[Rfam]
RNA sequence: UGGAUCAAUGAUGACCAGCGGUAGCCGUAUGAUUCAUGGAUCAUGACUACAGAUCUGGGAGUCUGAGUUCCAC
Numbered sequence: 001u002g003g004a005u006c007a008a009u010g011a012u013g014a015c016c017a018g019c020g021g022u023a024g025c026c027g028u029a030u031g032a033u034u035c036a037u038g039g040a041u042c043a044u045g046a047c048u049a050c051a052g053a054u055c056u057g058g059g060a061g062u063c064u065g066a067g068u069u070c071c072a073c
Base pairs, nucleotide, nucleotide: 002071003070004069006067

Small nucleolar RNA SNORD113/SNORD114 family: a 73-nucleotide RNA. The family has 59 seed sequences and 5,721 matches in Rfam 15.1. The family is grouped with related families in Rfam's "SNORD74 clan". The imprinted human domain at 14q32 contains two clusters of tandemly repeated small nucleolar RNAs named 14q(I) and 14q(II) snoRNAs. These two clusters are named SNORD113 and SNORD114 respectively in the HGNC approved gene symbol nomenclature. The family's consensus secondary structure is taken from published work. Its family is annotated with RNA processing and nucleolus in the Gene Ontology.